[Rfam]
This 271-nucleotide RNA from Nannospalax galili belongs to the Rfam family "Mason-Pfizer monkey virus packaging signal". On this family, see Mustafa et al., Virus Res 2004: "Mutational analysis of the predicted secondary RNA structure of the Mason-Pfizer monkey virus packaging signal". It is annotated as a cis-regulatory element. Taxonomically the source falls in Nannospalax (Eukaryota, Metazoa, Eutheria, Boreoeutheria). This family represents a group of sequences that are related to the Mason-Pfizer monkey virus (MPMV) packaging signal. The packaging signal is located in the 5' UTR and is required for specific RNA encapsidation. A search with the family's covariance model found it, with a score of 142 bits.
Nucleotides: 271
Base pairs, nucleotide, nucleotide: 006031007030008029013025014024037049038048039047083123084122085120090113091112093109094108095107096106097105133147135146136145137144138143155198156197158194159193206246207245208244209243210242211241215233216232217231218230219229256271259268261266
Number, partner (000 for none) and nucleotide at each position: 001000u002000g003000g004000c005000a006031c007030c008029c009000a010000a011000c012000a013025u014024g015000g016000g017000g018000c019000c020000u021000g022000g023000a024014u025013a026000c027000u028000g029008g030007g031006g032000g033000a034000c035000a036000a037049c038048g039047u040000g041000a042000g043000g044000g045000a046000c047039a048038c049037g050000a051000u052000g053000g054000a055000a056000g057000a058000a059000g060000g061000g062000g063000u064000g065000c066000a067000c068000a069000c070000c071000c072000a073000u074000u075000c076000a077000a078000a079000u080000a081000g082000u083123u084122c085120g086000g087000a088000g089000a090113c091112g092000u093109c094108g095107u096106g097105g098000u099000a100000g101000c102000c103000u104000g105097c106096u107095g108094u109093g110000a111000c112091c113090g114000a115000g116000c117000c118000g119000a120085c121000a122084g123083g124000u125000a126000a127000g128000u129000u130000g131000g132000u133147c134000g135146u136145u137144c138143a139000a140000u141000c142000a143138u144137g145136g146135g147133g148000c149000a150000a151000g152000a153000a154000u155198u156197a157000a158194g159193u160000c161000a162000g163000c164000a165000u166000c167000a168000g169000a170000a171000a172000u173000a174000u175000g176000u177000g178000a179000u180000a181000c182000a183000g184000u185000u186000a187000a188000g189000a190000g191000a192000a193159g194158c195000u196000c197156u198155a199000u200000a201000g202000g203000c204000a205000a206246g207245a208244g209243g210242a211241g212000u213000a214000a215233a216232g217231g218230u219229u220000a221000c222000a223000a224000c225000u226000g227000a228000g229219g230218a231217u232216u233215u234000a235000u236000u237000u238000c239000a240000u241211u242210u243209c244208u245207u246206u247000g248000a249000u250000u251000u252000u253000g254000u255000g256271a257000a258000a259268g260000a261266c262000a263000u264000c265000u266261g267000c268259c269000c270000a271256u